[Rfam]
RNA sequence: AAGGAAAACCCCCAUAAUCUUCCUGUCGAACUUGGCGGAACGCACAGAAGAUUAUGGGGGCCUCACAGAAUACGGGAUAAGUAUAUAUGAAACCGUGUCAGAGAUUCAACCCUUCGCAGUGUAUUAACGCACGGCAUUCUGUUUCCGCCAU
Numbered sequence: 001a002a003g004g005a006a007a008a009c010c011c012c013c014a015u016a017a018u019c020u021u022c023c024u025g026u027c028g029a030a031c032u033u034g035g036c037g038g039a040a041c042g043c044a045c046a047g048a049a050g051a052u053u054a055u056g057g058g059g060g061c062c063u064c065a066c067a068g069a070a071u072a073c074g075g076g077a078u079a080a081g082u083a084u085a086u087a088u089g090a091a092a093c094c095g096u097g098u099c100a101g102a103g104a105u106u107c108a109a110c111c112c113u114u115c116g117c118a119g120u121g122u123a124u125u126a127a128c129g130c131a132c133g134g135c136a137u138u139c140u141g142u143u144u145c146c147g148c149c150a151u
Base pairs, nucleotide, nucleotide: 002063003062004061009060010059011058012057013056014055015054016053017052018051019050020049021048022047033150034149035148036147037146038145039144044140
RNA: Pseudoknot of the regulatory region of the repZ gene